RNA sequence: GGGAAUAAUGGAUGUGAGGGAACUCGGCCAAAUAGUCCCGUAUCUUAGGUAGAAGGGAUGCCUAUCCAGAAAUAGGAUAGGUCGCAGUGGCAAGGGGACCCCGACUGUUUACCAAAAACACAGACCGCUGCUAGUCCGUAAGGAUGUGUAUAGCGGCCGAAACCUGCCCAGUGUUGGUACCUGAAAGCUCUUUUCAAGGAGAAGAAGGGCCAAUAAACGGCGGGGGUAACUAUGACCCUCUCAAGGUAGCGUAAUACCUAGCCGCUUAAUUGGCGGCUCGCAUGAAGGUUCAACGAGAGUCCCACUGUCCCCACAUUCAGCCCCGUGAAAUUAAUGUACUGGUGCACAAUCCAGUCU
Number, nucleotide and partner (000 for none) at each position: 001g324002g323003g322004a000005a000006u000007a000008a000009u319010g318011g317012a316013u315014g314015u313016g312017a000018g310019g309020g308021a000022a000023c000024u000025c000026g000027g000028c000029c000030a000031a000032a000033u000034a000035g059036u058037c057038c056039c055040g000041u000042a000043u000044c049045u000046u000047a000048g000049g044050u000051a000052g000053a000054a000055g039056g038057g037058a036059u035060g082061c081062c080063u079064a078065u077066c076067c075068a000069g000070a000071a000072a000073u000074a000075g067076g066077a065078u064079a063080g062081g061082u060083c087084g000085c000086a000087g083088u000089g000090g000091c000092a000093a000094g000095g303096g302097g301098a300099c299100c000101c297102c295103g294104a000105c000106u120107g119108u118109u000110u000111a000112c000113c000114a000115a000116a000117a000118a108119c107120a106121c000122a000123g158124a000125c156126c155127g154128c153129u152130g151131c148132u000133a000134g145135u144136c143137c142138g000139u000140a000141a000142g137143g136144a135145u134146g000147u000148g131149u000150a000151u130152a129153g128154c127155g126156g125157c000158c123159g000160a000161a290162a289163c288164c287165u000166g221167c220168c219169c000170a000171g218172u217173g214174u213175u212176g211177g210178u000179a000180c209181c208182u207183g000184a000185a000186a000187g000188c201189u200190c199191u198192u000193u000194u000195c000196a000197a000198g191199g190200a189201g188202a000203a000204g000205a000206a000207g182208g181209g180210c177211c176212a175213a174214u173215a000216a000217a172218c171219g168220g167221c166222g240223g239224g238225g237226g236227u235228a000229a000230c000231u000232a000233u000234g000235a227236c226237c225238c224239u223240c222241u245242c000243a000244a000245g241246g000247u000248a000249g000250c000251g000252u000253a000254a000255u000256a000257c000258c000259u000260a000261g277262c276263c275264g274265c273266u272267u000268a000269a000270u000271u000272g266273g265274c264275g263276g262277c261278u000279c000280g000281c000282a000283u000284g000285a000286a000287g164288g163289u162290u161291c000292a000293a000294c103295g102296a000297g101298a000299g099300u098301c097302c096303c095304a000305c000306u000307g000308u020309c019310c018311c000312c016313a015314c014315a013316u012317u011318c010319a009320g000321c000322c003323c002324c001325g000326u000327g000328a000329a000330a000331u000332u000333a000334a000335u000336g000337u000338a355339c354340u353341g352342g351343u000344g000345c000346a000347c000348a000349a000350u000351c342352c341353a340354g339355u338356c000357u000

The record is a 357-nucleotide part of an RNA from Ferroplasma acidarmanus, which matches "Archaeal large subunit ribosomal RNA" in Rfam. The literature on the family includes a 2001 paper in Science by Yusupov et al., "Crystal structure of the ribosome at 5.5 A resolution". Rfam 15.1 lists 2,955 matches to the family in 1,139 species. Rfam links the family to the GO terms ribosome and structural constituent of ribosome. The family's consensus secondary structure is taken from published work.